Background: Shown here is an 85-nucleotide sequence from Rhodamnia argentea, a member of the family "Small nucleolar RNA Z122". The organism belongs to Rhodamnia, within Eukaryota. By type it is a C/D-box small nucleolar RNA. Pairs were carried over by alignment from the consensus structure, which was predicted with PFOLD.
[Rfam]
RNA sequence: UUUGGGAUAUGAUGCCACCACAAUAUAAUUAUCUAAGGCAGCAGCACUGCUGAGUACAUUAUUUGCACGUCAGUCUGAUCCCAAC
Numbered sequence: 001u002u003u004g005g006g007a008u009a010u011g012a013u014g015c016c017a018c019c020a021c022a023a024u025a026u027a028a029u030u031a032u033c034u035a036a037g038g039c040a041g042c043a044g045c046a047c048u049g050c051u052g053a054g055u056a057c058a059u060u061a062u063u064u065g066c067a068c069g070u071c072a073g074u075c076u077g078a079u080c081c082c083a084a085c
Base pairs, nucleotide, nucleotide: 002084003083004082005081006080007079